A member of the RNA family "Small nucleolar RNA snoR60" from Papaver nudicaule, 72 nucleotides long. The literature on the family includes a 2000 paper in J Biol Chem by Barneche et al., "Fibrillarin genes encode both a conserved nucleolar protein and a novel small nucleolar RNA involved in ribosomal RNA methylation in Arabidopsis thaliana". Pairs were carried over by alignment from the consensus structure, which was predicted with PFOLD. Rfam 15.1 lists 1,133 matches to the family in 227 species. It scores 52 bits against the family's covariance model. By type it is a C/D-box small nucleolar RNA.

[Rfam]
RNA sequence: UUGAAUAUGAUGAGAUAUACUCAGAUUCCCCUUCUUACAUUACGGGUGAUGUAACAACGAGUUUCCCCUUCA
Numbered sequence: 001u002u003g004a005a006u007a008u009g010a011u012g013a014g015a016u017a018u019a020c021u022c023a024g025a026u027u028c029c030c031c032u033u034c035u036u037a038c039a040u041u042a043c044g045g046g047u048g049a050u051g052u053a054a055c056a057a058c059g060a061g062u063u064u065c066c067c068c069u070u071c072a
Stems, first nucleotide, its partner, number of pairs: 002072004